[Rfam]
Nucleotides: 075
Base pairs, nucleotide, nucleotide: 015025016024017023031071032070033069038065039064043060044059045058047056049054
Number, partner (000 for none) and nucleotide at each position: 001000c002000u003000u004000g005000a006000c007000g008000g009000a010000u011000c012000c013000c014000a015025g016024c017023c018000g019000c020000a021000g022000c023017g024016g025015u026000c027000g028000u029000c030000c031071c032070g033069c034000c035000g036000g037000g038065c039064g040000g041000g042000c043060c044059u045058g046000g047056c048000c049054g050000u051000a052000g053000g054049u055000c056047g057000c058045c059044a060043g061000c062000a063000g064039c065038g066000c067000c068000u069033g070032c071031g072000c073000c074000u075000c
Overview: This 75-nucleotide RNA from Streptomyces qinzhouensis belongs to the Rfam family "ASpks TB sRNA". On this family, see Arnvig and Young, Mol Microbiol 2009: "Identification of small RNAs in Mycobacterium tuberculosis". The organism belongs to Streptomyces, within Bacteria. Rfam 15.1 lists 9,052 matches to the family in 683 species. Pairs were carried over by alignment from the consensus structure, which is taken from published work.